[Rfam]
RNA sequence: UUUGCCGGGGUGGGCAGGCCCUAUGGCCAACUAACCCUAAUGGCGGCCGCGCCCCUCACGCUCGCCCGCUGUUUUACUCGCUGACUUUCAGCGGGCAAAGGAAGCGGCCUAGGGGAAGGGGGUGGGGGGAAAAGAGUUCCGGCCUCAAAAAAAGCCAGCGAGGGGGAUCCACACCCCGGCCCACCCUGAGGUCCCUGUCCCUUCUCCGCAACCGGGGAUGCUCCCGCCCUCUCCCCUCGUGGAGGCCGCGGUCGGCGGGCUCAGCGCCACUGCCGCCGCGAAGAGUUCGUCUCUGUCAGCCUCGGCGGCGGCCGGGAGCAGAGGGCCGGCGCGCCCGCCCUGGGCAGCCGGGGGACCCCAGCAGAACAAAACGGGCGCGGCGCCGCUGGGCGCUGAGCAGCCGCCGCCCCCUGAGACGUGGGGUGCGCGGUCGGCGCCGCCCCGACACCC
Dot-bracket structure: .....(.(((..(.....((((............................(((.(........((((((((........[[[[.[[[[)))))))).......).))).........................................]]].].]]]]...)))).....)..))).)......(((.(((...............((..((((....(((((((...((.((............(((((.((((.(((.....)))...))))))))).((((.....)))).........)).))....)))))))......)))).))......................))).)))...........((((..((((((................((((...((((........))))...))))..))))))))))........
RNA: Vertebrate telomerase RNA
Organism: Vidua chalybeata